[Rfam]
RNA sequence: UGCGUUAGGGCAAGGGGCAGCGCCAGAACUGCCAAAGUGAGCGGCGCGUCAUAGAAGCGUAAGUUCGUUUUGCGUUCGCCAGUAUCAGGCAGGCAUACAAGCGAAACCGACCGCGUAAAAAGGGUGUAUGCCAUCGGCAGGCAAGUAAGCCAUUCCCAAGUGUGCUGCCGGGGUCUAGCGAUGCAGCGCGUUCUGGUAAACAACUCUGGGGAAAACCGCUCGUGAACGAACCACGGGCGGCUUUUC
Numbered sequence: 001u002g003c004g005u006u007a008g009g010g011c012a013a014g015g016g017g018c019a020g021c022g023c024c025a026g027a028a029c030u031g032c033c034a035a036a037g038u039g040a041g042c043g044g045c046g047c048g049u050c051a052u053a054g055a056a057g058c059g060u061a062a063g064u065u066c067g068u069u070u071u072g073c074g075u076u077c078g079c080c081a082g083u084a085u086c087a088g089g090c091a092g093g094c095a096u097a098c099a100a101g102c103g104a105a106a107c108c109g110a111c112c113g114c115g116u117a118a119a120a121a122g123g124g125u126g127u128a129u130g131c132c133a134u135c136g137g138c139a140g141g142c143a144a145g146u147a148a149g150c151c152a153u154u155c156c157c158a159a160g161u162g163u164g165c166u167g168c169c170g171g172g173g174u175c176u177a178g179c180g181a182u183g184c185a186g187c188g189c190g191u192u193c194u195g196g197u198a199a200a201c202a203a204c205u206c207u208g209g210g211g212a213a214a215a216c217c218g219c220u221c222g223u224g225a226a227c228g229a230a231c232c233a234c235g236g237g238c239g240g241c242u243u244u245u246c
Base pairs, nucleotide, nucleotide: 001043002042003041006039007038016033017032018031019030020029023209024208025207026206027205044191045190046189047188048187049186057075058074059073060072061071062070063231064230065229066228067227068226069225076181077180078179079178081176082175213243214242216240217239218238219237220236221235222234223233224232